[Rfam]
RNA: t44 RNA
Organism: Thiomicrorhabdus sediminis
RNA sequence: GAAUUUUAACAGAAAAUCCGCACGUUUACCGACACAUAAAACGGGGUGCCUGAAAACACUGUAAACGAGAGUUUAUCGAGUUGUCAGGUUCGUAUUAUGGGUGAACGGAGGCUUAAC
Numbered sequence: 001g002a003a004u005u006u007u008a009a010c011a012g013a014a015a016a017u018c019c020g021c022a023c024g025u026u027u028a029c030c031g032a033c034a035c036a037u038a039a040a041a042c043g044g045g046g047u048g049c050c051u052g053a054a055a056a057c058a059c060u061g062u063a064a065a066c067g068a069g070a071g072u073u074u075a076u077c078g079a080g081u082u083g084u085c086a087g088g089u090u091c092g093u094a095u096u097a098u099g100g101g102u103g104a105a106c107g108g109a110g111g112c113u114u115a116a117c
Base pairs, nucleotide, nucleotide: 023107024106025105026104027103028102029101030100035099036098037097038096039095041093042092043091048089049088050087051086052085